[Rfam]
BsrC: an 89-nucleotide sequence from Paenibacillus sabuli. From the family's description: The 301 nucleotide sequence from Kouji Nakamura has been trimmed to a highly conserved ~85 nucleotide long core to form this family. The source organism's lineage runs through Bacteria, Bacillota, Bacilli, Caryophanales and Paenibacillus. For this family Rfam cites "Novel small RNA-encoding genes in the intergenic regions of Bacillus subtilis" (Saito et al., Gene, 2008).
RNA sequence: UUACACGAAAACAACGAAAGCCCUAUCCUCUCGAUCGUCCUUGCGGUUCCAUGACCAGCGCCAGUGCGAAUCCGUGCUCCUUUAUUGCA
Numbered sequence: 001u002u003a004c005a006c007g008a009a010a011a012c013a014a015c016g017a018a019a020g021c022c023c024u025a026u027c028c029u030c031u032c033g034a035u036c037g038u039c040c041u042u043g044c045g046g047u048u049c050c051a052u053g054a055c056c057a058g059c060g061c062c063a064g065u066g067c068g069a070a071u072c073c074g075u076g077c078u079c080c081u082u083u084a085u086u087g088c089a
Stems, first nucleotide, its partner, number of pairs: 035069003040064002042060003045056004